[Rfam]
RNA: Small nucleolar RNA SNORA41
RNA sequence: UUCCACAGCUACUCAUCUGCAGCUGUUUGUAUGGUAGCAGUUCUGACAUUCUCUGUGGGAAAGAAACUGCUACAUCAUUUAAUACUUCCUUUGCAGCAAAACAGAAAGUGGGCAUAUGUGUGAGACACACAA
Numbered sequence: 001u002u003c004c005a006c007a008g009c010u011a012c013u014c015a016u017c018u019g020c021a022g023c024u025g026u027u028u029g030u031a032u033g034g035u036a037g038c039a040g041u042u043c044u045g046a047c048a049u050u051c052u053c054u055g056u057g058g059g060a061a062a063g064a065a066a067c068u069g070c071u072a073c074a075u076c077a078u079u080u081a082a083u084a085c086u087u088c089c090u091u092u093g094c095a096g097c098a099a100a101a102c103a104g105a106a107a108g109u110g111g112g113c114a115u116a117u118g119u120g121u122g123a124g125a126c127a128c129a130c131a132a
Base pairs, nucleotide, nucleotide: 003058004057005056006055018045019044021042022041023040024039025038072121073120074119075118085112086111087110088108090106091105092104